[Rfam]
This 68-nucleotide RNA sequence belongs to the Rfam family "Xanthine riboswitch aptamer (NMT1 RNA)". The literature on the family includes a 2021 paper in Nucleic Acids Res by Xu et al., "Insights into xanthine riboswitch structure and metal ion-mediated ligand recognition". Gene Ontology term of the family: purine nucleobase binding. Pairs were carried over by alignment from the consensus structure, which is taken from published work.
RNA sequence: CGCAGGAGUAGAAGCGUUCACCGCGCAUGCAUCACGUCAGUGCAUCGCGGCCGGAAAUUGCUCCUGGA
Numbered sequence: 001c002g003c004a005g006g007a008g009u010a011g012a013a014g015c016g017u018u019c020a021c022c023g024c025g026c027a028u029g030c031a032u033c034a035c036g037u038c039a040g041u042g043c044a045u046c047g048c049g050g051c052c053g054g055a056a057a058u059u060g061c062u063c064c065u066g067g068a
Base pairs, nucleotide, nucleotide: 005064006063007062008061009060010059015053018055019054021050022049023048024047025046